[Rfam]
RNA sequence: UUGGAGGAUUAGAAGACUUCAACUUACAAACGUGAAGGAUUUCAAGACUUCUACUUGCAUACUUGAAGAAUUUGAAGACUUCAGCA
Numbered sequence: 001u002u003g004g005a006g007g008a009u010u011a012g013a014a015g016a017c018u019u020c021a022a023c024u025u026a027c028a029a030a031c032g033u034g035a036a037g038g039a040u041u042u043c044a045a046g047a048c049u050u051c052u053a054c055u056u057g058c059a060u061a062c063u064u065g066a067a068g069a070a071u072u073u074g075a076a077g078a079c080u081u082c083a084g085c086a
Stems, first nucleotide, its partner, number of pairs: 001084006009076002012073003017068005025059001027057002034051004